[Rfam]
RNA sequence: AAAUGUUCUCGGGGCGGGGUGUAAUUCCCCACCGGCGGUAUCAGGAGCAAUCCUGGAGCCCGCGAGCGCUUCCGGCACCUCCUGUCGGAAGGUCAGCAGAUCCGGUGAGAUGCCGGAGCCGACGGUAUAGUCCGGAUGGAAGAGGACAACA
Number, nucleotide and partner (000 for none) at each position: 001a000002a000003a000004u148005g147006u146007u145008c144009u143010c142011g000012g000013g000014g000015c000016g000017g029018g028019g027020u000021g000022u000023a000024a000025u000026u000027c019028c018029c017030c000031a131032c130033c121034g120035g063036c062037g061038g060039u000040a000041u000042c000043a000044g000045g000046a000047g000048c000049a000050a000051u000052c000053c000054u000055g000056g000057a000058g119059c118060c038061c037062g036063c035064g000065a000066g097067c096068g000069c000070u000071u000072c000073c000074g000075g000076c000077a000078c000079c000080u000081c000082c000083u000084g000085u000086c000087g000088g000089a000090a000091g000092g000093u000094c000095a000096g067097c066098a000099g000100a000101u117102c116103c115104g114105g113106u000107g000108a000109g000110a000111u000112g000113c105114c104115g103116g102117a101118g059119c058120c034121g033122a000123c134124g133125g132126u000127a000128u000129a000130g032131u031132c125133c124134g123135g000136a000137u000138g000139g000140a000141a000142g010143a009144g008145g007146a006147c005148a004149a000150c000151a000
Rfam assigns this 151-nucleotide RNA from Rhizobium johnstonii to the family "FMN riboswitch aptamer (RFN element)".
Pairs were carried over by alignment from the consensus structure, which is taken from published work.
It is one of the family's seed sequences.